Rfam assigns this 138-nucleotide sequence from Leptospirillum rubarum to the family "Group II catalytic intron D1-D4-7". Group II introns are found in rRNA, tRNA and mRNA of organelles in fungi, plants and protists, and also in mRNA in bacteria. Lineage of the source: Bacteria > Pseudomonadati > Nitrospirales > Leptospirillum > Leptospirillum sp. Group II. A reference for the family is Bonen and Vogel (2001), "The ins and outs of group II introns", Trends Genet. The sequence is in the family's curated seed alignment.
[Rfam]
RNA sequence: CCGGAACUUCCCUGUUCCGUAGCCUAUCGUUGCGUGCGUGGUGAGCAAUCCCGGGUACGAAGCCAACGAGACAACGUAACCCUAUAAGCCGAUCCUGCGAAGGAAAGGCGUGACUGCGAGCAUAACGCGGGAGGGUGC
Numbered sequence: 001c002c003g004g005a006a007c008u009u010c011c012c013u014g015u016u017c018c019g020u021a022g023c024c025u026a027u028c029g030u031u032g033c034g035u036g037c038g039u040g041g042u043g044a045g046c047a048a049u050c051c052c053g054g055g056u057a058c059g060a061a062g063c064c065a066a067c068g069a070g071a072c073a074a075c076g077u078a079a080c081c082c083u084a085u086a087a088g089c090c091g092a093u094c095c096u097g098c099g100a101a102g103g104a105a106a107g108g109c110g111u112g113a114c115u116g117c118g119a120g121c122a123u124a125a126c127g128c129g130g131g132a133g134g135g136u137g138c
Stems, first nucleotide, its partner, number of pairs: 002019006028068005033059005039053003043050002088109003095102002114130005